[Rfam]
RNA sequence: AUCACCUGGGUAUCUUGUUAAAAUGUAGAUUCUGUCUCAGUUGGUCUGAGGUGGGCCUGAGAAUCUGCAUUUCUUACAAGUUCCCAGGUGAUGCAGA
Numbered sequence: 001a002u003c004a005c006c007u008g009g010g011u012a013u014c015u016u017g018u019u020a021a022a023a024u025g026u027a028g029a030u031u032c033u034g035u036c037u038c039a040g041u042u043g044g045u046c047u048g049a050g051g052u053g054g055g056c057c058u059g060a061g062a063a064u065c066u067g068c069a070u071u072u073c074u075u076a077c078a079a080g081u082u083c084c085c086a087g088g089u090g091a092u093g094c095a096g097a
Base pairs, nucleotide, nucleotide: 003090004089005088009084010083014080015079016078017077018076020074021072022071023070025068026067027066028065029064031062032061033060